[Rfam]
RNA: DUF3800-VIII RNA
RNA sequence: CGGCUCCUGCUUUUUUCGAAGCCUUUAGUUCCACUAGGGGUAGUAAGUAGAAAUUAGCGGGUGCCG
Numbered sequence: 001c002g003g004c005u006c007c008u009g010c011u012u013u014u015u016u017c018g019a020a021g022c023c024u025u026u027a028g029u030u031c032c033a034c035u036a037g038g039g040g041u042a043g044u045a046a047g048u049a050g051a052a053a054u055u056a057g058c059g060g061g062u063g064c065c066g
Stems, first nucleotide, its partner, number of pairs: 001066004006061006013053001015052003021041009